This 112-nucleotide RNA sequence from Gillisella ampelina belongs to the Rfam family "EcpR1".
The family's consensus secondary structure was predicted with WAR.
For this family Rfam cites "A genome-wide survey of sRNAs in the symbiotic nitrogen-fixing alpha-proteobacterium Sinorhizobium meliloti" (Schluter et al., BMC Genomics, 2010).
Perviously named SmelC291, SmrC10, or Sra33. According to its overproduction phenotype it was renamed Elongated Cell Phenotype RNA1. Induced by stress,EcpR1 negatively regulates cell cycle master regulatory genes dnaA and gcrA at post-transcriptional level by base pairing between its strongly conserved GC-rich loop and the target mRNAs. It's regulation is hfq-independent but requires RNase E to regulate dnaA.

RNA sequence: AUACCCCAUGGUGCUCAGGUCCGCCGCAUCUCCUGGGUCGUGGGGUUGGUCGGCAGGUGUGCGAUUAUCAAGCGGUUCCUCGUGCCGUUAUUGCAUGCCCGCCGACCCCCAU
Numbered sequence: 001a002u003a004c005c006c007c008a009u010g011g012u013g014c015u016c017a018g019g020u021c022c023g024c025c026g027c028a029u030c031u032c033c034u035g036g037g038u039c040g041u042g043g044g045g046u047u048g049g050u051c052g053g054c055a056g057g058u059g060u061g062c063g064a065u066u067a068u069c070a071a072g073c074g075g076u077u078c079c080u081c082g083u084g085c086c087g088u089u090a091u092u093g094c095a096u097g098c099c100c101g102c103c104g105a106c107c108c109c110c111a112u
Stems, first nucleotide, its partner, number of pairs: 003046008014037006048107007056099003
The sequence is in the family's curated seed alignment.